Nucleotides: 091
Stems, first nucleotide, its partner, number of pairs: 001086007011078001013077004022073006028043006046060004
Number, partner (000 for none) and nucleotide at each position: 001086g002085g003084c004083a005082g006081g007080u008000a009000a010000g011078c012000g013077c014076g015075g016074g017000a018000a019000c020000u021000a022073c023072c024071u025070c026069a027068g028043g029042u030041c031040g032039c033038c034000g035000a036000a037000a038033g039032g040031c041030g042029g043028c044000a045000g046060c047059c048058g049057g050000c051000u052000a053000a054000c055000c056000c057049c058048c059047g060046g061000u062000g063000g064000g065000a066000u067000c068027c069026u070025g071024a072023g073022g074016c075015c076014c077013g078011g079000g080007a081006c082005c083004u084003g085002c086001u087000u088000u089000u090000u091000a